[Rfam]
RNA sequence: GCUGUUGAAUGAUGAGGCUGUGGAAUGCGUGCUGGUCACGGUGCCUGAGUCACAGACUGCGGAGAUGUCCCUCGCUGUCUUCCAAGGACAGU
Number, nucleotide and partner (000 for none) at each position: 001g092002c091003u090004g089005u088006u000007g000008a000009a000010u000011g000012a000013u000014g000015a000016g000017g000018c000019u000020g000021u000022g000023g000024a000025a000026u000027g000028c000029g000030u000031g000032c000033u000034g000035g000036u000037c000038a000039c000040g000041g000042u000043g000044c000045c000046u000047g000048a000049g000050u000051c000052a000053c000054a000055g000056a000057c000058u000059g000060c000061g000062g000063a000064g000065a000066u000067g000068u000069c000070c000071c000072u000073c000074g000075c000076u000077g000078u000079c000080u000081u000082c000083c000084a000085a000086g000087g000088a005089c004090a003091g002092u001

Small nucleolar RNA U83B: a 92-nucleotide RNA from Rousettus aegyptiacus. Its family is annotated with nucleolus and RNA processing in the Gene Ontology. U83B belongs to the C/D family of snoRNAs. U83B like U83A has no documented RNA target and they share the same host gene with the C/D box snoRNA U43 (RPL3). The source organism's lineage runs through Eukaryota, Euteleostomi, Boreoeutheria, Pteropodoidea and Rousettus. The literature on the family includes a 2000 paper in Nucleic Acids Res by Jady and Kiss, "Characterisation of the U83 and U84 small nucleolar RNAs: two novel 2'-O-ribose methylation guide RNAs that lack complementarities to ribosomal RNAs". A search with the family's covariance model found it, with a score of 60 bits.